[Rfam]
RNA sequence: UCGGCAGACCAGACAAUCGCUGUUUAAGCAAUUGCUUAAAGGGAGGAAAGUCCGGGCUACAUAGGGCGAUGUGCUAGCUAACGGCUAGGGGGCGUAAGCCUACGACAAGUGCAACAGAGAAUAGACCGCCCGACCACUCAACCGAAUUUUUUGCUGAUUGAUUAUCGGGUCUUAAAAAUUUCGGUUGAGUGGUUGGGUAAGGGUGAAACGGUGGGGUAAGAGCCCACCGCAUGACUGGCAACAGUUCAUGGCAAGGUAAACUCCACAUGUAGCAAGACCAAAUAGGAACUCAAUGGGUGGCCCGCUCAGAGUUCGGGUAGGUUGCUUGAGCGUGUCGGCGACGGCACGCCUAGAUGAAUGAUUGUCCACGACAGAACCCGGCUUAUCGGUUUGCCAAAAAU
Numbered sequence: 001u002c003g004g005c006a007g008a009c010c011a012g013a014c015a016a017u018c019g020c021u022g023u024u025u026a027a028g029c030a031a032u033u034g035c036u037u038a039a040a041g042g043g044a045g046g047a048a049a050g051u052c053c054g055g056g057c058u059a060c061a062u063a064g065g066g067c068g069a070u071g072u073g074c075u076a077g078c079u080a081a082c083g084g085c086u087a088g089g090g091g092g093c094g095u096a097a098g099c100c101u102a103c104g105a106c107a108a109g110u111g112c113a114a115c116a117g118a119g120a121a122u123a124g125a126c127c128g129c130c131c132g133a134c135c136a137c138u139c140a141a142c143c144g145a146a147u148u149u150u151u152u153g154c155u156g157a158u159u160g161a162u163u164a165u166c167g168g169g170u171c172u173u174a175a176a177a178a179u180u181u182c183g184g185u186u187g188a189g190u191g192g193u194u195g196g197g198u199a200a201g202g203g204u205g206a207a208a209c210g211g212u213g214g215g216g217u218a219a220g221a222g223c224c225c226a227c228c229g230c231a232u233g234a235c236u237g238g239c240a241a242c243a244g245u246u247c248a249u250g251g252c253a254a255g256g257u258a259a260a261c262u263c264c265a266c267a268u269g270u271a272g273c274a275a276g277a278c279c280a281a282a283u284a285g286g287a288a289c290u291c292a293a294u295g296g297g298u299g300g301c302c303c304g305c306u307c308a309g310a311g312u313u314c315g316g317g318u319a320g321g322u323u324g325c326u327u328g329a330g331c332g333u334g335u336c337g338g339c340g341a342c343g344g345c346a347c348g349c350c351u352a353g354a355u356g357a358a359u360g361a362u363u364g365u366c367c368a369c370g371a372c373a374g375a376a377c378c379c380g381g382c383u384u385a386u387c388g389g390u391u392u393g394c395c396a397a398a399a400a401u
Stems, first nucleotide, its partner, number of pairs: 001397001003395008011386001012366007020043002023040006048384003052381005057272004064303004069268005074088005089103001090101004104263002109261002111257002126202002128198019210228006229252001230250005235244003276323004286314006294308005330349008
Rfam assigns this 401-nucleotide RNA sequence from Moraxella cuniculi to the family "Bacterial RNase P class A". Taxonomically the source falls in Moraxella cuniculi (Bacteria, Pseudomonadota, Gammaproteobacteria, Moraxellaceae). From the family's description: Ribonuclease P (RNase P) is a ubiquitous endoribonuclease, found in archaea, bacteria and eukarya as well as chloroplasts and mitochondria. The family's RNA type in Rfam is ribozyme.